[Rfam]
Nucleotides: 120
Stems, first nucleotide, its partner, number of pairs: 007026006051074005057068001
Number, partner (000 for none) and nucleotide at each position: 001000u002000g003000g004000u005000g006000g007026g008025g009024c010023u011022g012021g013000a014000u015000u016000a017000g018000u019000g020000a021012u022011c023010g024009g025008c026007u027000c028000u029000u030000a031000c032000c033000g034000u035000a036000u037000u038000a039000a040000a041000a042000c043000a044000c045000u046000c047000a048000u049000u050000u051074u052073u053072u054071g055070g056000a057068g058000u059000u060000a061000u062000u063000u064000a065000u066000g067000u068057c069000a070055c071054u072053a073052a074051g075000c076000a077000a078000c079000c080000a081000a082000g083000a084000a085000a086000a087000a088000g089000c090000a091000g092000a093000u094000a095000u096000c097000a098000u099000c100000g101000c102000a103000a104000a105000a106000u107000u108000c109000g110000c111000a112000c113000g114000c115000g116000c117000u118000g119000a120000a